[Rfam]
RNA sequence: UGCUUUGCGCAGUGGCAGUAUCGUAGCCAAUGAGGUUAAUCCGAGGCGCGAUUAUUGCUAAUUGAAAACUUUUCUAUACAUUUUCAAUCUCCCACUGAGUAUUUUAAGUAAUGUAUUGGCACUGUCGCUUCAG
Number, nucleotide and partner (000 for none) at each position: 001u000002g000003c000004u000005u000006u000007g000008c000009g000010c000011a000012g000013u000014g000015g000016c000017a000018g000019u000020a052021u051022c050023g049024u048025a000026g047027c046028c045029a000030a000031u000032g000033a000034g042035g041036u000037u000038a000039a000040u000041c035042c034043g000044a000045g028046g027047c026048g024049c023050g022051a021052u020053u000054a000055u000056u000057g000058c000059u000060a000061a000062u000063u000064g000065a000066a000067a000068a000069c000070u000071u000072u000073u000074c000075u000076a000077u000078a000079c000080a109081u108082u107083u106084u000085c000086a103087a102088u101089c000090u099091c000092c097093c000094a000095c000096u000097g092098a000099g090100u000101a088102u087103u086104u000105u000106a083107a082108g081109u080110a000111a000112u000113g000114u000115a000116u000117u000118g000119g000120c000121a000122c133123u132124g131125u000126c000127g000128c000129u000130u000131c124132a123133g122
This 133-nucleotide RNA from Chelydra serpentina belongs to the Rfam family "U4 spliceosomal RNA". The match comes from Rfam's covariance-model search (83 bits). Gene Ontology terms of the family: spliceosomal tri-snRNP complex assembly and U4 snRNP. Its Rfam clan is "U4 clan". Pairs were carried over by alignment from the consensus structure, which is taken from published work. Lineage of the source: Eukaryota > Metazoa > Eumetazoa > Sarcopterygii > Chelydra. About the family: U4 small nuclear RNA (U4 snRNA) is a component of the major U2-dependent spliceosome.